[Rfam]
RNA: S. aureus tsr31 small RNA
Organism: Staphylococcus massiliensis
RNA sequence: UCCUUUUAAUAGGACGAUGUGUAUAAACUAAUAUACGCUCCCCUUACAAACAUGUGAGAGGGAGCGAUUUU
Dot-bracket structure: ((((......)))).....................(((((((((((((....)))))).))))))).....
Numbered sequence: 001u002c003c004u005u006u007u008a009a010u011a012g013g014a015c016g017a018u019g020u021g022u023a024u025a026a027a028c029u030a031a032u033a034u035a036c037g038c039u040c041c042c043c044u045u046a047c048a049a050a051c052a053u054g055u056g057a058g059a060g061g062g063a064g065c066g067a068u069u070u071u
Stems, first nucleotide, its partner, number of pairs: 001014004036066007043058006